A member of the RNA family "mir-92 microRNA precursor family" from Scophthalmus maximus, 77 nucleotides long. The family's consensus secondary structure was predicted with PFOLD. On this family, see Mourelatos et al., Genes Dev 2002: "miRNPs: a novel class of ribonucleoproteins containing numerous microRNAs".

RNA sequence: CUUUCUGUGCAGGUUGGGAUUAGUAGCAAUGCUGUUUACCUGUAGGUAUUGCACUUGUCCCGGCCUGUGUAGGAACG
Numbered sequence: 001c002u003u004u005c006u007g008u009g010c011a012g013g014u015u016g017g018g019a020u021u022a023g024u025a026g027c028a029a030u031g032c033u034g035u036u037u038a039c040c041u042g043u044a045g046g047u048a049u050u051g052c053a054c055u056u057g058u059c060c061c062g063g064c065c066u067g068u069g070u071a072g073g074a075a076c077g
Base pairs, nucleotide, nucleotide: 004073005072006071009068010067011066012065013064014063016061017060018059019058020057022055023054024053026052027051028050029049030048031047032046033045
Dot-bracket structure: ...(((..((((((.(((((.(((.((((((((...........))))))))))).))))).))))))..)))....